RNA sequence: CUCUUAUCAAGAGUGGCUGAGGGAUGUGCCCAAUGAAGCCCGGCAACCGUCUUAAGUGAAAAGGUGCUAAUUCACAUAAAGUUUUAUAAAACUUUAGCAGAUAAGAG
Numbered sequence: 001c002u003c004u005u006a007u008c009a010a011g012a013g014u015g016g017c018u019g020a021g022g023g024a025u026g027u028g029c030c031c032a033a034u035g036a037a038g039c040c041c042g043g044c045a046a047c048c049g050u051c052u053u054a055a056g057u058g059a060a061a062a063g064g065u066g067c068u069a070a071u072u073c074a075c076a077u078a079a080a081g082u083u084u085u086a087u088a089a090a091a092c093u094u095u096a097g098c099a100g101a102u103a104a105g106a107g
Base pairs, nucleotide, nucleotide: 001107002106003105004104005103006102007101008100013041015040016039017038021031022030023029025076026075027074028073042068043067044066045065047064048063050059051058072099077096078095079094080093081092082091
Dot-bracket structure: ((((((((....(.(((...(((.[[[[)))......))))((((.((.((......))...))))))...(]]]]((((((........))))))..)))))))))